[Rfam]
RNA sequence: ACAGCAUCAGUGAUGACAGACUUCAUAAUGUUAUCCUUGCACUUUGAUUUUCAGUGAAGAAAUUAAUGGGAAUGGUCUUCUGAGAUGCUG
Numbered sequence: 001a002c003a004g005c006a007u008c009a010g011u012g013a014u015g016a017c018a019g020a021c022u023u024c025a026u027a028a029u030g031u032u033a034u035c036c037u038u039g040c041a042c043u044u045u046g047a048u049u050u051u052c053a054g055u056g057a058a059g060a061a062a063u064u065a066a067u068g069g070g071a072a073u074g075g076u077c078u079u080c081u082g083a084g085a086u087g088c089u090g
Base pairs, nucleotide, nucleotide: 002090003089004088005087006086007085008084
The family of this 90-nucleotide RNA from Apostasia shenzhenica is "Small nucleolar RNA snoR26". Pairs were carried over by alignment from the consensus structure, which was predicted with WAR. On this family, see Brown et al., RNA 2001: "Multiple snoRNA gene clusters from Arabidopsis". It is annotated as a C/D-box small nucleolar RNA. Lineage of the source: Eukaryota > Euphyllophyta > Spermatophyta > Magnoliopsida > Apostasia.